[Rfam]
RNA sequence: CACUGUUCAUGAAGAUUUUUAUAAAGCAAUGGGAAUCUCUCUGAAAAAGACUGAAAGACAUUAGCAUACUGAAACGGUU
Numbered sequence: 001c002a003c004u005g006u007u008c009a010u011g012a013a014g015a016u017u018u019u020u021a022u023a024a025a026g027c028a029a030u031g032g033g034a035a036u037c038u039c040u041c042u043g044a045a046a047a048a049g050a051c052u053g054a055a056a057g058a059c060a061u062u063a064g065c066a067u068a069c070u071g072a073a074a075c076g077g078u079u
Base pairs, nucleotide, nucleotide: 002078003077004076005075006074007073